[Rfam]
RNA sequence: GUUCUUUUGUUCUGUAAGUCGCUCUGGAUAAGAGCGUCUGCUAAAUGAAUGUAA
Numbered sequence: 001g002u003u004c005u006u007u008u009g010u011u012c013u014g015u016a017a018g019u020c021g022c023u024c025u026g027g028a029u030a031a032g033a034g035c036g037u038c039u040g041c042u043a044a045a046u047g048a049a050u051g052u053a054a
Stems, first nucleotide, its partner, number of pairs: 013043001014041003020036006
Dot-bracket structure: ............((((...((((((.....))))))..))).)...........

Shown here is a 54-nucleotide RNA from Megalops atlanticus, a member of the family "UnaL2 LINE 3' element". Its family is annotated with transposition, RNA-mediated in the Gene Ontology. Rfam describes the family as follows. The eel long interspersed element (LINE) UnaL2 and its partner short interspersed element (SINE) share a conserved 3' tail containing a stem-loop that is critical for their retrotransposition. NCBI's taxonomy places the organism under Eukaryota, Teleostomi, Actinopteri, Elopiformes, Megalops.